[Rfam]
RNA sequence: GAUUUAUCAAGAAAGGUGGAGGGAUUUGGCCCAAUGAAACCUUAGCAACCGACAUGAUUCCAGAAGUGUAAAGGUGCUAAUUCCAACCCGAGGGGAAGAUAAGUG
Numbered sequence: 001g002a003u004u005u006a007u008c009a010a011g012a013a014a015g016g017u018g019g020a021g022g023g024a025u026u027u028g029g030c031c032c033a034a035u036g037a038a039a040c041c042u043u044a045g046c047a048a049c050c051g052a053c054a055u056g057a058u059u060c061c062a063g064a065a066g067u068g069u070a071a072a073g074g075u076g077c078u079a080a081u082u083c084c085a086a087c088c089c090g091a092g093g094g095g096a097a098g099a100u101a102a103g104u105g
Stems, first nucleotide, its partner, number of pairs: 002104007013043005021032003026086004044078004049074002052069003082097001087094002
Source information:
The family of this 105-nucleotide RNA sequence from Chryseobacterium sp. P1-3 is "SAM riboswitch aptamer (S box leader)".